This 99-nucleotide RNA sequence from Hymenobacter oligotrophus belongs to the Rfam family "SAM riboswitch aptamer (S box leader)".
The source organism's lineage runs through Bacteria, Bacteroidota, Cytophagales, Hymenobacteraceae and Hymenobacter.
It scores 68 bits against the family's covariance model.

RNA sequence: UUUUUAUACAGAGGCGUGGAGAGACAGGCUCCCUGAAGCGCCGGCAACCACCCACGGGGUUACUCCCGGGAACGGUGCCAAGUCCUGACCAUAUAAAAA
Numbered sequence: 001u002u003u004u005u006a007u008a009c010a011g012a013g014g015c016g017u018g019g020a021g022a023g024a025c026a027g028g029c030u031c032c033c034u035g036a037a038g039c040g041c042c043g044g045c046a047a048c049c050a051c052c053c054a055c056g057g058g059g060u061u062a063c064u065c066c067c068g069g070g071a072a073c074g075g076u077g078c079c080a081a082g083u084c085c086u087g088a089c090c091a092u093a094u095a096a097a098a099a
Stems, first nucleotide, its partner, number of pairs: 001099008013042005021031003025087004043079004048075002051070003083091001